The record is a 535-nucleotide part of an RNA from Donacobius atricapilla, which matches "Eukaryotic large subunit ribosomal RNA" in Rfam. A search with the family's covariance model found it, with a score of 1982 bits.
RNA sequence: CGAAGACCCUAUUGAGCUUGACUCUGGUCUGGUGCUGUGAAGGGACAUGAGAGGUGUAGAACAAGUGGGAGGCCAGGAGCGCACUUGGCAGUGCGAGGUGACCCGCCCAUCGGCGUCCCUGCCAUUGGUGAAAUACCACUACUUUGAUCAUUUUUCACUUACCCAGUGAGGUGGAGGGGUGAGCCCCAAGUGGGGGGGUCUUGCUUCUGCUGCCAAGCAGCCGGCACAUGCCAGCUGCAACCCACUCUGGGAACAGCAGCAGGUGGAGAGUUUGACUAGGGCGGUACACCUGUCAAAGCGUAGCACAGGUGUCCUAAGGUGAGCUCAAGGUGGACAGAAACCUCCUGCGGAGCAGAAGGGCAAAAGCUUGCUUGAUCUUGAUUUUCAGUACGAAUACAGACGGUGAAAGCAGGGCCUCACAAUGCUUCUGGCUUUUUGGGUUUUAAGCAGGAGGUGUCAGAAAAGUUAUGACAGGGAUAAAUGGCUUGUGGCAGCCAAGCAUUCAUAGCAAGGUCACUUUUUGUUUCUUUGAUGU
Numbered sequence: 001c002g003a004a005g006a007c008c009c010u011a012u013u014g015a016g017c018u019u020g021a022c023u024c025u026g027g028u029c030u031g032g033u034g035c036u037g038u039g040a041a042g043g044g045a046c047a048u049g050a051g052a053g054g055u056g057u058a059g060a061a062c063a064a065g066u067g068g069g070a071g072g073c074c075a076g077g078a079g080c081g082c083a084c085u086u087g088g089c090a091g092u093g094c095g096a097g098g099u100g101a102c103c104c105g106c107c108c109a110u111c112g113g114c115g116u117c118c119c120u121g122c123c124a125u126u127g128g129u130g131a132a133a134u135a136c137c138a139c140u141a142c143u144u145u146g147a148u149c150a151u152u153u154u155u156c157a158c159u160u161a162c163c164c165a166g167u168g169a170g171g172u173g174g175a176g177g178g179g180u181g182a183g184c185c186c187c188a189a190g191u192g193g194g195g196g197g198g199u200c201u202u203g204c205u206u207c208u209g210c211u212g213c214c215a216a217g218c219a220g221c222c223g224g225c226a227c228a229u230g231c232c233a234g235c236u237g238c239a240a241c242c243c244a245c246u247c248u249g250g251g252a253a254c255a256g257c258a259g260c261a262g263g264u265g266g267a268g269a270g271u272u273u274g275a276c277u278a279g280g281g282c283g284g285u286a287c288a289c290c291u292g293u294c295a296a297a298g299c300g301u302a303g304c305a306c307a308g309g310u311g312u313c314c315u316a317a318g319g320u321g322a323g324c325u326c327a328a329g330g331u332g333g334a335c336a337g338a339a340a341c342c343u344c345c346u347g348c349g350g351a352g353c354a355g356a357a358g359g360g361c362a363a364a365a366g367c368u369u370g371c372u373u374g375a376u377c378u379u380g381a382u383u384u385u386c387a388g389u390a391c392g393a394a395u396a397c398a399g400a401c402g403g404u405g406a407a408a409g410c411a412g413g414g415c416c417u418c419a420c421a422a423u424g425c426u427u428c429u430g431g432c433u434u435u436u437u438g439g440g441u442u443u444u445a446a447g448c449a450g451g452a453g454g455u456g457u458c459a460g461a462a463a464a465g466u467u468a469u470g471a472c473a474g475g476g477a478u479a480a481a482u483g484g485c486u487u488g489u490g491g492c493a494g495c496c497a498a499g500c501a502u503u504c505a506u507a508g509c510a511a512g513g514u515c516a517c518u519u520u521u522u523g524u525u526u527c528u529u530u531g532a533u534g535u
Base pairs, nucleotide, nucleotide: 008475009474010473013471015467016466017465018464019463021271022270023269024268028263029262030261031260033258034257037158038157039156040155041154042153044152045151047148048147050145051144052143053142064140065139066138067137068136071123072122162251163250164249165248166247172244173243174242181200182199184197185196186195187194217238218237219236220235221234274287275285276284277283288310289309290308291307292306293305313414314413319371320370321369322368323367324366325351326350328346329345330344332342333341352361353360376400377399378398381395382394383393384392403410404409425453426452427451428450429449430448433447434446435445484525486523488522490518491517494514495513499509500508
The organism belongs to Donacobius, within Eukaryota.